[Rfam]
The family of this 117-nucleotide RNA sequence from Bianquea renquensis is "FMN riboswitch aptamer (RFN element)". The base pairs follow the family's consensus structure, which is taken from published work. It scores 108 bits against the family's covariance model. NCBI's taxonomy places the organism under Bacteria, Bacillati, Clostridia, Bianqueaceae, Bianquea.
RNA sequence: CGAGGUCUUCAGGGCAGGGUGUAAUUCCCGACCGGCGGUAUAGUCCGCGAGCGCCGUGGCGCAGGAUUUGGUGCGAUUCCAAAACCGACAGUAUAGUCUGGAUGAGAGAAGUCUACU
Numbered sequence: 001c002g003a004g005g006u007c008u009u010c011a012g013g014g015c016a017g018g019g020u021g022u023a024a025u026u027c028c029c030g031a032c033c034g035g036c037g038g039u040a041u042a043g044u045c046c047g048c049g050a051g052c053g054c055c056g057u058g059g060c061g062c063a064g065g066a067u068u069u070g071g072u073g074c075g076a077u078u079c080c081a082a083a084a085c086c087g088a089c090a091g092u093a094u095a096g097u098c099u100g101g102a103u104g105a106g107a108g109a110a111g112u113c114u115a116c117u
Stems, first nucleotide, its partner, number of pairs: 004114002007111004017029003031097002033087002035048004043085002051062003067083005089100003